[Rfam]
RNA sequence: GUAAGCGAUGGGGAUGGGGUUCCCCCGAUAACCGCCAUUGUGGCUGAUGACUCCUACGAUAGC
Number, nucleotide and partner (000 for none) at each position: 001g000002u000003a000004a000005g000006c000007g000008a000009u000010g026011g025012g024013g023014a000015u000016g054017g053018g052019g051020u050021u049022c000023c013024c012025c011026c010027g000028a000029u000030a000031a000032c000033c000034g044035c043036c042037a000038u000039u000040g000041u000042g036043g035044c034045u000046g000047a000048u000049g021050a020051c019052u018053c017054c016055u000056a000057c000058g000059a000060u000061a000062g000063c000

This 63-nucleotide sequence from Hyphomicrobium sp. MC1 belongs to the Rfam family "Fluoride riboswitch aptamer (crcB RNA motif)". Gene Ontology terms of the family: response to fluoride and positive regulation of gene expression. Lineage of the source: Bacteria > Pseudomonadota > Alphaproteobacteria > Hyphomicrobiaceae > Hyphomicrobium.